[Rfam]
RNA sequence: AGGUUCUAAAAGAACUGACCGAAGACAGUAGGGGACGUAUGUCAUAAUAUUCCUACCGAGGACAAAUAUCACAGUAAAAAAUGAUAAUUGAACUCUCUAUGUCUAUGGUCGGCAUAGUUUUUUUAUGCCCGA
Numbered sequence: 001a002g003g004u005u006c007u008a009a010a011a012g013a014a015c016u017g018a019c020c021g022a023a024g025a026c027a028g029u030a031g032g033g034g035a036c037g038u039a040u041g042u043c044a045u046a047a048u049a050u051u052c053c054u055a056c057c058g059a060g061g062a063c064a065a066a067u068a069u070c071a072c073a074g075u076a077a078a079a080a081a082u083g084a085u086a087a088u089u090g091a092a093c094u095c096u097c098u099a100u101g102u103c104u105a106u107g108g109u110c111g112g113c114a115u116a117g118u119u120u121u122u123u124u125a126u127g128c129c130c131g132a
Base pairs, nucleotide, nucleotide: 028056029055030054031053032052033051034043035042036041097117098116099115100114101113102112103111105109

Shown here is a 132-nucleotide sequence from Lactococcus allomyrinae, a member of the family "Ribosomal protein L10 leader". This family is a putative r-protein leader autoregulatory structure found in B. subtilis and other low-GC Gram-positive bacteria. It is located in the 5' untranslated regions of mRNAs encoding ribosomal proteins L10 and L12 (rplJ-rplL). A Rho-independent transcription terminator structure that is probably involved in regulation is included at the 3' end. NCBI's taxonomy places the organism under Bacteria, Bacillati, Bacillota, Streptococcaceae, Lactococcus. A search with the family's covariance model found it, with a score of 75 bits.